[Rfam]
RNA sequence: AGGCGAAAGAGGCAAAAUCUCCGAAAGGGGAUGACGCAAAGCCGUGGGUCUAAAGCUCUAAAAGAGCUACGAUUGCCAGGUUGCCCAA
Numbered sequence: 001a002g003g004c005g006a007a008a009g010a011g012g013c014a015a016a017a018u019c020u021c022c023g024a025a026a027g028g029g030g031a032u033g034a035c036g037c038a039a040a041g042c043c044g045u046g047g048g049u050c051u052a053a054a055g056c057u058c059u060a061a062a063a064g065a066g067c068u069a070c071g072a073u074u075g076c077c078a079g080g081u082u083g084c085c086c087a088a
Stems, first nucleotide, its partner, number of pairs: 012037002017032006040082004045078003048073003055067004
RNA: c-di-GMP-I riboswitch aptamer
Organism: Cohnella luojiensis